Rfam assigns this 79-nucleotide RNA sequence from Hermetia illucens to the family "drz-agam-1 ribozyme". Pairs were carried over by alignment from the consensus structure, which is taken from published work. Lineage of the source: Eukaryota > Endopterygota > Panorpida > Stratiomyidae > Hermetia. The literature on the family includes a 2009 paper in Science by Webb et al., "Widespread occurrence of self-cleaving ribozymes".
[Rfam]
RNA sequence: UACUACCAAACCCUAUCUCAGCCUACACGUGGUGACUGCUGGGAGCUCUUUGUUAACGAAAAGCUGCAGACGGAGAAGG
Numbered sequence: 001u002a003c004u005a006c007c008a009a010a011c012c013c014u015a016u017c018u019c020a021g022c023c024u025a026c027a028c029g030u031g032g033u034g035a036c037u038g039c040u041g042g043g044a045g046c047u048c049u050u051u052g053u054u055a056a057c058g059a060a061a062a063g064c065u066g067c068a069g070a071c072g073g074a075g076a077a078g079g
Stems, first nucleotide, its partner, number of pairs: 012079003016075001018073002021033003044065004049060004